[Rfam]
RNA sequence: UAAGAGUAUUAACAAAGCCGAAUUUAAUACCCAUAAUAAGGUUGGGUAGUAUCUACCGACACACCGUAAAUGUGUCGACAAUCGUGGUGAAAACACUAGAU
Numbered sequence: 001u002a003a004g005a006g007u008a009u010u011a012a013c014a015a016a017g018c019c020g021a022a023u024u025u026a027a028u029a030c031c032c033a034u035a036a037u038a039a040g041g042u043u044g045g046g047u048a049g050u051a052u053c054u055a056c057c058g059a060c061a062c063a064c065c066g067u068a069a070a071u072g073u074g075u076c077g078a079c080a081a082u083c084g085u086g087g088u089g090a091a092a093a094c095a096c097u098a099g100a101u
Base pairs, nucleotide, nucleotide: 017088018087019086020085022082023081024080028048029047030046031045032044033043057077058076059075060074061073062072063071
RNA: Purine riboswitch aptamer